RNA sequence: GUAUUUUAUGUUGUACAAACCCCACAGUAUAAUUUUAGCACCAACUUAUCUUUAAUGUCACUAUGUAAUUCGUGCAUUACUGCUAGCCAACAUGAAUAAUAUAUA
Numbered sequence: 001g002u003a004u005u006u007u008a009u010g011u012u013g014u015a016c017a018a019a020c021c022c023c024a025c026a027g028u029a030u031a032a033u034u035u036u037a038g039c040a041c042c043a044a045c046u047u048a049u050c051u052u053u054a055a056u057g058u059c060a061c062u063a064u065g066u067a068a069u070u071c072g073u074g075c076a077u078u079a080c081u082g083c084u085a086g087c088c089a090a091c092a093u094g095a096a097u098a099a100u101a102u103a104u105a
Stems, first nucleotide, its partner, number of pairs: 005096007013087001018081001024036001026034003038058002043052002063077005

Mitochondrial DNA control region secondary structure A: a 105-nucleotide sequence from Cercocebus atys. Lineage of the source: Eukaryota > Metazoa > Eumetazoa > Deuterostomia > Cercocebus. Rfam classes the family as an antisense RNA. The family has 53 seed sequences and 795 matches in Rfam 15.1.